[Rfam]
RNA sequence: AUGACAAUUGCGGGAGAGUGCAAAAGACAAAGGCCACCGAAGGAGCAAGUUCCAAAAAGACCCUUGGAACCAAUCUCUCAGGUAGACGGAACCGCAAUCGGACG
Numbered sequence: 001a002u003g004a005c006a007a008u009u010g011c012g013g014g015a016g017a018g019u020g021c022a023a024a025a026g027a028c029a030a031a032g033g034c035c036a037c038c039g040a041a042g043g044a045g046c047a048a049g050u051u052c053c054a055a056a057a058a059g060a061c062c063c064u065u066g067g068a069a070c071c072a073a074u075c076u077c078u079c080a081g082g083u084a085g086a087c088g089g090a091a092c093c094g095c096a097a098u099c100g101g102a103c104g
Base pairs, nucleotide, nucleotide: 007098008097009096010095011094012093013092020034021033036083037082038081039079040078043077044076045075049070050069051068052067053066054065055064